[Rfam]
RNA sequence: GGGGACCUUCGGGGCCCUUUACUCGCGGCGGCGCACGAGAAAGACGCGCCAGUCGCCACAAGCAACGGAAGACAGAAA
Numbered sequence: 001g002g003g004g005a006c007c008u009u010c011g012g013g014g015c016c017c018u019u020u021a022c023u024c025g026c027g028g029c030g031g032c033g034c035a036c037g038a039g040a041a042a043g044a045c046g047c048g049c050c051a052g053u054c055g056c057c058a059c060a061a062g063c064a065a066c067g068g069a070a071g072a073c074a075g076a077a078a
Base pairs, nucleotide, nucleotide: 001018002017003016004015006014007013008012027057028056029055030054031053032052
RNA: L2-Alphaproteobacteria ribosomal protein leader